[Rfam]
RNA sequence: GAAACACCCUUAUGGGGCAGGACUUGCUUCAGUGGGGCUUUGGUGCUCACUGAGUCCGUCUCCUGAAUGUGUCACU
Numbered sequence: 001g002a003a004a005c006a007c008c009c010u011u012a013u014g015g016g017g018c019a020g021g022a023c024u025u026g027c028u029u030c031a032g033u034g035g036g037g038c039u040u041u042g043g044u045g046c047u048c049a050c051u052g053a054g055u056c057c058g059u060c061u062c063c064u065g066a067a068u069g070u071g072u073c074a075c076u
Stems, first nucleotide, its partner, number of pairs: 001075001004072004010066003014062005021056003029053008037044002